This 264-nucleotide RNA from delta proteobacterium NaphS2 belongs to the Rfam family "Bacterial large signal recognition particle RNA". For this family Rfam cites "Kinship in the SRP RNA family" (Rosenblad et al., RNA Biol, 2009). The organism belongs to Deltaproteobacteria, within Bacteria.
[Rfam]
RNA sequence: UCGCGCUAGACGGGGAGUUAGCGGUGCCCCUUAACCCGAAAUCCGCUUAUGCGGGGUUGAAAAUCCUUCUGGAAAUUCCUGGUUCGAACUGCAUUUUCAACACCUUGGGGUUGAUAUGGACCUCACGUAACAGGCGCUUAUAAACCCCGUCAGGUCCGGAAGGAAGCAGCGGUAAGUAAGAAAGUCUGUGUCGUCGAGUGAAUCUAUAUGGUUUCUCCGGGUGGCGAAGGCAUAUCGUUCAGGUUUCGAAAAAAGGUUGCGCGG
Numbered sequence: 001u002c003g004c005g006c007u008a009g010a011c012g013g014g015g016a017g018u019u020a021g022c023g024g025u026g027c028c029c030c031u032u033a034a035c036c037c038g039a040a041a042u043c044c045g046c047u048u049a050u051g052c053g054g055g056g057u058u059g060a061a062a063a064u065c066c067u068u069c070u071g072g073a074a075a076u077u078c079c080u081g082g083u084u085c086g087a088a089c090u091g092c093a094u095u096u097u098c099a100a101c102a103c104c105u106u107g108g109g110g111u112u113g114a115u116a117u118g119g120a121c122c123u124c125a126c127g128u129a130a131c132a133g134g135c136g137c138u139u140a141u142a143a144a145c146c147c148c149g150u151c152a153g154g155u156c157c158g159g160a161a162g163g164a165a166g167c168a169g170c171g172g173u174a175a176g177u178a179a180g181a182a183a184g185u186c187u188g189u190g191u192c193g194u195c196g197a198g199u200g201a202a203u204c205u206a207u208a209u210g211g212u213u214u215c216u217c218c219g220g221g222u223g224g225c226g227a228a229g230g231c232a233u234a235u236c237g238u239u240c241a242g243g244u245u246u247c248g249a250a251a252a253a254a255g256g257u258u259g260c261g262c263g264g
Stems, first nucleotide, its partner, number of pairs: 001264006009058003012030004017025003035055004040050001065256004070251001072247006086236002090232001094228002097224003101220001107215003115208006122198003125194003128190002131188005137180005147172004155164003